[Rfam]
RNA sequence: GCUACUUGAUCGGGAGAGAGCAACCAACGGUUGCCGCCGAAGGGGCUAAUACCCAACAAACUCUCAGGCAAAAGGACCGGUCAACGGGG
Numbered sequence: 001g002c003u004a005c006u007u008g009a010u011c012g013g014g015a016g017a018g019a020g021c022a023a024c025c026a027a028c029g030g031u032u033g034c035c036g037c038c039g040a041a042g043g044g045g046c047u048a049a050u051a052c053c054c055a056a057c058a059a060a061c062u063c064u065c066a067g068g069c070a071a072a073a074g075g076a077c078c079g080g081u082c083a084a085c086g087g088g089g
Stems, first nucleotide, its partner, number of pairs: 006084008020034004036069003039065002043063003050055001